This 525-nucleotide sequence belongs to the Rfam family "ROOL RNA". By type it is a small RNA. Rfam describes the family as follows. Firmicutes, Fusobacteria (1 example), Tenericutes (1 example).
[Rfam]
RNA sequence: AUUAAGUAGAAAUAAAGAUGUGAUACAGGUGAAGAAGGUGCAAACUGCCUGUACUACCUCAUGCUAACGAGAGUAGACGGAUACGUUUACUCUUAUGAGUCCUGAAAGGGAUAUGACGAAAGUCUAAAUGAGUGUAGGUUUAUAACUAAAUAGAGAUAAAGGUUGACAAGACUUGGUUGCGACAAUAGACGCCUCUGUGAGGAAUAAGCUGUGAAAUGGUGGCUUGAUAACCAUUGCAGGAAGCAGUACAUCAAUAACGCAAUUUAGGGUGACGUAGUUGAAAUGCUACUAUAACAAGUUACGUUGAAAGAUAGCCUAAUCCCUUGUGAAGAUAAAACACAUUGGUUAAAAUCUGAACGCAGGUUAUUUUUGGGAGUUCUAAUCUCCCUAUACCUAGGUGUCGAAAGACAUAAGUAUAGAAGUUAUAGGGUCGCUACUUAUAGCUCAGACUAUGCUUGUAUAUGACCGAAUAUAUCAAAGUUUAACUUAUGAAUCCUGAACAAAAAGGACACAAUUUUUAUUAAU
Numbered sequence: 001a002u003u004a005a006g007u008a009g010a011a012a013u014a015a016a017g018a019u020g021u022g023a024u025a026c027a028g029g030u031g032a033a034g035a036a037g038g039u040g041c042a043a044a045c046u047g048c049c050u051g052u053a054c055u056a057c058c059u060c061a062u063g064c065u066a067a068c069g070a071g072a073g074u075a076g077a078c079g080g081a082u083a084c085g086u087u088u089a090c091u092c093u094u095a096u097g098a099g100u101c102c103u104g105a106a107a108g109g110g111a112u113a114u115g116a117c118g119a120a121a122g123u124c125u126a127a128a129u130g131a132g133u134g135u136a137g138g139u140u141u142a143u144a145a146c147u148a149a150a151u152a153g154a155g156a157u158a159a160a161g162g163u164u165g166a167c168a169a170g171a172c173u174u175g176g177u178u179g180c181g182a183c184a185a186u187a188g189a190c191g192c193c194u195c196u197g198u199g200a201g202g203a204a205u206a207a208g209c210u211g212u213g214a215a216a217u218g219g220u221g222g223c224u225u226g227a228u229a230a231c232c233a234u235u236g237c238a239g240g241a242a243g244c245a246g247u248a249c250a251u252c253a254a255u256a257a258c259g260c261a262a263u264u265u266a267g268g269g270u271g272a273c274g275u276a277g278u279u280g281a282a283a284u285g286c287u288a289c290u291a292u293a294a295c296a297a298g299u300u301a302c303g304u305u306g307a308a309a310g311a312u313a314g315c316c317u318a319a320u321c322c323c324u325u326g327u328g329a330a331g332a333u334a335a336a337a338c339a340c341a342u343u344g345g346u347u348a349a350a351a352u353c354u355g356a357a358c359g360c361a362g363g364u365u366a367u368u369u370u371u372g373g374g375a376g377u378u379c380u381a382a383u384c385u386c387c388c389u390a391u392a393c394c395u396a397g398g399u400g401u402c403g404a405a406a407g408a409c410a411u412a413a414g415u416a417u418a419g420a421a422g423u424u425a426u427a428g429g430g431u432c433g434c435u436a437c438u439u440a441u442a443g444c445u446c447a448g449a450c451u452a453u454g455c456u457u458g459u460a461u462a463u464g465a466c467c468g469a470a471u472a473u474a475u476c477a478a479a480g481u482u483u484a485a486c487u488u489a490u491g492a493a494u495c496c497u498g499a500a501c502a503a504a505a506a507g508g509a510c511a512c513a514a515u516u517u518u519u520a521u522u523a524a525u
Stems, first nucleotide, its partner, number of pairs: 008525001011522009025052005037046003054137004059132001064099002067096001069094001071092009100110004115124003144488002147485001149483002161473001162467001165305003170300006176263006192202004208247005217238002220233003225253004264326001266324003274289005309369001314364004352449004373388002376385001390461003413457002419451001422445001424442006494509004